RNA sequence: GACGACCGGCUGGAGCCUGUGAGCUCCGGCCCACAAGUGGAGGCUCCGUCUCCCACCUGGCCGUCCUCCGGGACGGCGGGUCACCGGUCAGGCGGCGCCCAUCGUUCCGUACGGACGAUGGACCCGCCCGAUGACAGCGCCCCGCGGUUCGCCGUGGCGGUGCUCCGGUAUCACCAGGAGCCCCGCCUGUGUCCCGUCCGGGGCAUUUUCU
Numbered sequence: 001g002a003c004g005a006c007c008g009g010c011u012g013g014a015g016c017c018u019g020u021g022a023g024c025u026c027c028g029g030c031c032c033a034c035a036a037g038u039g040g041a042g043g044c045u046c047c048g049u050c051u052c053c054c055a056c057c058u059g060g061c062c063g064u065c066c067u068c069c070g071g072g073a074c075g076g077c078g079g080g081u082c083a084c085c086g087g088u089c090a091g092g093c094g095g096c097g098c099c100c101a102u103c104g105u106u107c108c109g110u111a112c113g114g115a116c117g118a119u120g121g122a123c124c125c126g127c128c129c130g131a132u133g134a135c136a137g138c139g140c141c142c143c144g145c146g147g148u149u150c151g152c153c154g155u156g157g158c159g160g161u162g163c164u165c166c167g168g169u170a171u172c173a174c175c176a177g178g179a180g181c182c183c184c185g186c187c188u189g190u191g192u193c194c195c196g197u198c199c200g201g202g203g204c205a206u207u208u209u210c211u
Stems, first nucleotide, its partner, number of pairs: 004089006012027002028082005034059002037056004041051002060077007091128005099121008139204006145196003153191003156187005162181005
RNA: Streptomyces RNA 1601